RNA sequence: AAAACGGCCCUUAUCAGGGCCACCAAAAUUUUUAACAACAACAUU
Numbered sequence: 001a002a003a004a005c006g007g008c009c010c011u012u013a014u015c016a017g018g019g020c021c022a023c024c025a026a027a028a029u030u031u032u033u034a035a036c037a038a039c040a041a042c043a044u045u
Base pairs, nucleotide, nucleotide: 006021007020008019009018010017011016
The record is a 45-nucleotide RNA from Cinara cedri, which matches "Histone 3' UTR stem-loop" in Rfam.
The family's RNA type in Rfam is cis-regulatory element.
For this family Rfam cites "Formation of the 3' end of histone mRNA" (Dominski and Marzluff, Gene, 1999).
About the family: The mRNAs of metazoan histone genes lack a poly-A tail. 3' end processing occurs at a site between a highly conserved stem-loop (modelled by this family) and a purine rich region around 20 nts downstream (the histone downstream element, or HDE). The stem-loop is bound by a 31 kDa stem-loop binding protein (SLBP - also termed the histone hairpin binding protein, or HBP). Together with U7 snRNA binding of the HDE, SLBP binding nucleate s the formation of the processing complex.